[Rfam]
RNA sequence: UACGACAAAGGCAAACCUAUCGCGAGGUAGGGACGCAAAGCCAAGGGCCUCUCUGAGGCAGCCUGGUUACCGAAA
Numbered sequence: 001u002a003c004g005a006c007a008a009a010g011g012c013a014a015a016c017c018u019a020u021c022g023c024g025a026g027g028u029a030g031g032g033a034c035g036c037a038a039a040g041c042c043a044a045g046g047g048c049c050u051c052u053c054u055g056a057g058g059c060a061g062c063c064u065g066g067u068u069a070c071c072g073a074a075a
Stems, first nucleotide, its partner, number of pairs: 001075001003072002011036002016031006034061001039068004044064003047059003
Dot-bracket structure: (.((......((...((((((....))))))..[))..((((.((((((.......))).])))))))..))..)
The family of this 75-nucleotide RNA sequence from Paenibacillus stellifer is "c-di-GMP-I-GGC riboswitch aptamer".
The literature on the family includes a 2010 paper in Biochemistry by Smith et al., "Structural and biochemical determinants of ligand binding by the c-di-GMP riboswitch ".
NCBI's taxonomy places the organism under Bacteria, Bacillati, Caryophanales, Paenibacillaceae, Paenibacillus.
The match comes from Rfam's covariance-model search (73 bits).